[Rfam]
RNA sequence: CUAUGGUCUGUAAAAUGAUCAUGGCAAAAGGAG
Numbered sequence: 001c002u003a004u005g006g007u008c009u010g011u012a013a014a015a016u017g018a019u020c021a022u023g024g025c026a027a028a029a030g031g032a033g
Stems, first nucleotide, its partner, number of pairs: 001024008
L31-Firmicutes ribosomal protein leader: a 33-nucleotide sequence from Lactobacillus sp. ASF360. The literature on the family includes a 2020 paper in BMC Microbiol by Eckert and Weinberg, "Discovery of 20 novel ribosomal leader candidates in bacteria and archaea". It is annotated as a cis-regulatory leader. The base pairs follow the family's consensus structure, which is taken from published work.